RNA sequence: UUAGUUUUGUGGGGGAACCAUUUGGUUGAGAAGGUUAAACCUGACCCUUUGAACCUGAUUCAGUUAACACUGACGUAGGGAAGCAAAUAGAUUUAUAUA
Number, nucleotide and partner (000 for none) at each position: 001u000002u000003a000004g000005u000006u087007u086008u085009g084010u083011g048012g047013g046014g045015g000016a042017a026018c025019c024020a000021u000022u000023u000024g019025g018026u017027u000028g000029a000030g000031a000032a000033g041034g040035u039036u000037a000038a000039a035040c034041c033042u016043g000044a000045c014046c013047c012048u011049u000050u000051g000052a000053a000054c079055c078056u077057g076058a000059u000060u073061c072062a071063g070064u000065u000066a000067a000068c000069a000070c063071u062072g061073a060074c000075g000076u057077a056078g055079g054080g000081a000082a000083g010084c009085a008086a007087a006088u000089a000090g000091a000092u000093u000094u000095a000096u000097a000098u000099a000
RNA: TPP riboswitch aptamer (THI element)
Organism: Clostridium magnum